[Rfam]
RNA sequence: UAAUUACAAUCAUUCAUCAUGAGGGGAAGGUUUUUAAAAUGAUCUUUAUCAAUUCAGGCUAUUUGGGAGAAUAAAGAAAAGCCCACGCUCCAUGGCGGGCUAUACCACUUAGUACAGCUCACUGCUGUUUUAUGGCUCACACG
Numbered sequence: 001u002a003a004u005u006a007c008a009a010u011c012a013u014u015c016a017u018c019a020u021g022a023g024g025g026g027a028a029g030g031u032u033u034u035u036a037a038a039a040u041g042a043u044c045u046u047u048a049u050c051a052a053u054u055c056a057g058g059c060u061a062u063u064u065g066g067g068a069g070a071a072u073a074a075a076g077a078a079a080a081g082c083c084c085a086c087g088c089u090c091c092a093u094g095g096c097g098g099g100c101u102a103u104a105c106c107a108c109u110u111a112g113u114a115c116a117g118c119u120c121a122c123u124g125c126u127g128u129u130u131u132a133u134g135g136c137u138c139a140c141a142c143g
Base pairs, nucleotide, nucleotide: 004066005065006064008062015058017056021054022053025050026049028047029044030043031042032041081137083135084134085133087131094123095122097120098119099118100117101116103114104113105112
Shown here is a 143-nucleotide RNA sequence from Propithecus coquereli, a member of the family "Small nucleolar RNA SNORA4". From the family's description: ACA4 is a member of the H/ACA class of snoRNA that guide the sites of modification of uridines to pseudouridines. The family has 7 seed sequences and 290 matches in Rfam 15.1. Lineage of the source: Eukaryota > Metazoa > Deuterostomia > Amniota > Propithecus.